[Rfam]
RNA sequence: AACGUGUCGGGCGAUGGGGCUCGCCCCAACCGCGUCCCAUGACGCUGAUGGCCUCUGCGUGAUC
Numbered sequence: 001a002a003c004g005u006g007u008c009g010g011g012c013g014a015u016g017g018g019g020c021u022c023g024c025c026c027c028a029a030c031c032g033c034g035u036c037c038c039a040u041g042a043c044g045c046u047g048a049u050g051g052c053c054u055c056u057g058c059g060u061g062a063u064c
Stems, first nucleotide, its partner, number of pairs: 010025004016055006032045004
Dot-bracket structure: .........[[[[..((((((]]]]......((((......))))....)))))).........

This 64-nucleotide sequence from Streptomyces sp. TS71-3 belongs to the Rfam family "Fluoride riboswitch aptamer (crcB RNA motif)". The family has 289 seed sequences and 2,293 matches in Rfam 15.1. Its family is annotated with positive regulation of gene expression and response to fluoride in the Gene Ontology. Pairs were carried over by alignment from the consensus structure, which is taken from published work. Lineage of the source: Bacteria > Bacillati > Actinomycetota > Kitasatosporales > Streptomyces.